Rfam assigns this 57-nucleotide sequence from Onychostoma macrolepis to the family "U7 small nuclear RNA". Rfam's curators write: Animal histone pre-mRNAs are spliced by a different mechanism than nuclear pre-mRNAs and self-splicing introns. This processing involves the U7 snRNP, which contains only one RNA species: U7. The organism belongs to Onychostoma, within Eukaryota.

RNA sequence: UAGAACUUUGCUCUUUUAGUAUUUGUCCAAUAGGUUUUCUAUUAAUAGAAAGCCCCU
Numbered sequence: 001u002a003g004a005a006c007u008u009u010g011c012u013c014u015u016u017u018a019g020u021a022u023u024u025g026u027c028c029a030a031u032a033g034g035u036u037u038u039c040u041a042u043u044a045a046u047a048g049a050a051a052g053c054c055c056c057u
Base pairs, nucleotide, nucleotide: 033054034053035052036051037050038049039048040047041046